[Rfam]
RNA sequence: AAAUUAGUAUAAGUAUGUCCCAUGCAGUAUUUGGAACAUACUUACACUAAAA
Number, nucleotide and partner (000 for none) at each position: 001a000002a000003a000004u000005u000006a048007g047008u046009a000010u044011a043012a042013g000014u040015a039016u038017g000018u036019c000020c034021c033022a031023u000024g000025c000026a000027g000028u000029a000030u000031u022032u000033g021034g020035a000036a018037c000038a016039u015040a014041c000042u012043u011044a010045c000046a008047c007048u006049a000050a000051a000052a000
RNA: mir-1302 microRNA precursor family
Organism: Panthera leo